[Rfam]
RNA: Small nucleolar RNA Z13/snr52
Organism: Cladophialophora chaetospira
RNA sequence: AUCUGAAUGAUGAAAUAUUUCGGAUGUAAAUUCACAGACCUGUUCUGAAUGCGCAAAGCCGUGUAGAUAUUUCCGUUGCCUUCCUUCUGAUUUCCAGA
Numbered sequence: 001a002u003c004u005g006a007a008u009g010a011u012g013a014a015a016u017a018u019u020u021c022g023g024a025u026g027u028a029a030a031u032u033c034a035c036a037g038a039c040c041u042g043u044u045c046u047g048a049a050u051g052c053g054c055a056a057a058g059c060c061g062u063g064u065a066g067a068u069a070u071u072u073c074c075g076u077u078g079c080c081u082u083c084c085u086u087c088u089g090a091u092u093u094c095c096a097g098a
Stems, first nucleotide, its partner, number of pairs: 003097003021075004